A member of the RNA family "mir-9235 microRNA precursor family" from Eptesicus fuscus, 70 nucleotides long. Lineage of the source: Eukaryota > Opisthokonta > Teleostomi > Euteleostomi > Eptesicus. The family's consensus secondary structure was predicted with RNAalifold. It is one of the family's seed sequences.
RNA sequence: UUGUAAUUUUGAUGUGGUUGUGGGAGGCGGCGAGAACGGCCGUUUACCUAUGCCACCAUCUUGGUUCUCU
Numbered sequence: 001u002u003g004u005a006a007u008u009u010u011g012a013u014g015u016g017g018u019u020g021u022g023g024g025a026g027g028c029g030g031c032g033a034g035a036a037c038g039g040c041c042g043u044u045u046a047c048c049u050a051u052g053c054c055a056c057c058a059u060c061u062u063g064g065u066u067c068u069c070u
Stems, first nucleotide, its partner, number of pairs: 005066004011060004015055004020051005025045007
Dot-bracket structure: ....((((..((((((((.((((((((((((.......))))))).))))))))).))))..))))....